Description
The record is an 89-nucleotide sequence from Phytoactinopolyspora halotolerans, which matches "ZMP/ZTP riboswitch aptamer (pfl RNA motif)" in Rfam. NCBI's taxonomy places the organism under Bacteria, Bacillati, Jiangellales, Jiangellaceae, Phytoactinopolyspora. Pairs were carried over by alignment from the consensus structure, which is taken from published work.
RNA sequence: UGGCGGCGUCGUGACUGGCGCUGGGUGGAUCACCACCGGGGAGCGACACACCAGCAGCAGACCGCAGGUCGGACGCCUGGGCCUGGGUC
Numbered sequence: 001u002g003g004c005g006g007c008g009u010c011g012u013g014a015c016u017g018g019c020g021c022u023g024g025g026u027g028g029a030u031c032a033c034c035a036c037c038g039g040g041g042a043g044c045g046a047c048a049c050a051c052c053a054g055c056a057g058c059a060g061a062c063c064g065c066a067g068g069u070c071g072g073a074c075g076c077c078u079g080g081g082c083c084u085g086g087g088u089c
Base pairs, nucleotide, nucleotide: 003052006049008047009046010045011044012043015040016039017077018076019075020074025036026035027034028033066084067083068082069081070080